[Rfam]
Nucleotides: 078
Stems, first nucleotide, its partner, number of pairs: 001078006009032004038069007
Number, partner (000 for none) and nucleotide at each position: 001078g002077u003076a004075c005074u006073g007000a008000a009032u010031g011030g012029g013000u014000u015000u016000u017000a018000u019000g020000c021000c022000g023000c024000u025000a026000u027000a028000g029012c030011c031010c032009a033000u034000g035000a036000u037000u038069g039068g040067a041066c042065a043064u044063c045000a046000a047000a048000u049000a050000a051000a052000a053000a054000g055000c056000g057000a058000u059000g060000a061000u062000a063044g064043a065042u066041g067040u068039c069038c070000u071000a072000a073006c074005a075004g076003u077002g078001c

The family of this 78-nucleotide RNA sequence from Aerosakkonema funiforme is "CyVA-1 RNA". The family's consensus secondary structure is taken from published work. About the family: Cyanobacteria, Acidobacteria (1 example), Verrucomicrobia (1 example). Lineage of the source: Bacteria > Cyanophyceae > Oscillatoriophycideae > Aerosakkonemataceae > Aerosakkonema funiforme.